[Rfam]
RNA sequence: AACCUAAUGGGCUUUCUCUUCUCAGUUCUUCCCGGAGUCGGGAAAAGCUGGGUUGAGAGGGUGAUAAAAAAAAGAA
Numbered sequence: 001a002a003c004c005u006a007a008u009g010g011g012c013u014u015u016c017u018c019u020u021c022u023c024a025g026u027u028c029u030u031c032c033c034g035g036a037g038u039c040g041g042g043a044a045a046a047g048c049u050g051g052g053u054u055g056a057g058a059g060g061g062u063g064a065u066a067a068a069a070a071a072a073a074g075a076a
Stems, first nucleotide, its partner, number of pairs: 014059005021052005029044006
RNA: mir-320 microRNA precursor family